[Rfam]
RNA: Small nucleolar RNA SNORA48
RNA sequence: UCCCCCUGGCAAUGGGUAAAGAGACACCUUGUUGGUAGUGGUGUUCUUAUAUCGGUCAGGGGCAGUGCAGAUGACAGUCCUUUGUGCAUCCUAACUUGAUGCCUGGAUUGGCCAAAGCUGUCUUGUGCCUAGGACUCAUCA
Numbered sequence: 001u002c003c004c005c006c007u008g009g010c011a012a013u014g015g016g017u018a019a020a021g022a023g024a025c026a027c028c029u030u031g032u033u034g035g036u037a038g039u040g041g042u043g044u045u046c047u048u049a050u051a052u053c054g055g056u057c058a059g060g061g062g063c064a065g066u067g068c069a070g071a072u073g074a075c076a077g078u079c080c081u082u083u084g085u086g087c088a089u090c091c092u093a094a095c096u097u098g099a100u101g102c103c104u105g106g107a108u109u110g111g112c113c114a115a116a117g118c119u120g121u122c123u124u125g126u127g128c129c130u131a132g133g134a135c136u137c138a139u140c141a
Stems, first nucleotide, its partner, number of pairs: 001064001003062006013054003019048003023042001025040003084135002087132001098129001100127001104125003109120004